[Rfam]
RNA: permuted transfer-messenger RNA
Organism: Oceaniovalibus sp. ACAM 378
RNA sequence: GGUGAUAAACGCGCAGGUAAUAAGCGGAUUGGACCCGGGGGCGGUACCCGGCGGCUCCACCAAACAUCCCUUGUUGGGGGAACAUGGGGCCGAAAUAGGAUCGACAAACGUCUAAAGCUGUUUGCUUUUACUCGGUGAGCUACCACCGAUAUCGGUGCAAUAUAGUAUAGUUGCCAACAACAACCAUGCUCCGGUCGCAGUCGCAGCGUAA
Numbered sequence: 001g002g003u004g005a006u007a008a009a010c011g012c013g014c015a016g017g018u019a020a021u022a023a024g025c026g027g028a029u030u031g032g033a034c035c036c037g038g039g040g041g042c043g044g045u046a047c048c049c050g051g052c053g054g055c056u057c058c059a060c061c062a063a064a065c066a067u068c069c070c071u072u073g074u075u076g077g078g079g080g081a082a083c084a085u086g087g088g089g090c091c092g093a094a095a096u097a098g099g100a101u102c103g104a105c106a107a108a109c110g111u112c113u114a115a116a117g118c119u120g121u122u123u124g125c126u127u128u129u130a131c132u133c134g135g136u137g138a139g140c141u142a143c144c145a146c147c148g149a150u151a152u153c154g155g156u157g158c159a160a161u162a163u164a165g166u167a168u169a170g171u172u173g174c175c176a177a178c179a180a181c182a183a184c185c186a187u188g189c190u191c192c193g194g195u196c197g198c199a200g201u202c203g204c205a206g207c208g209u210a211a
Stems, first nucleotide, its partner, number of pairs: 001132005013121004025110002029107003035051005052092007133148004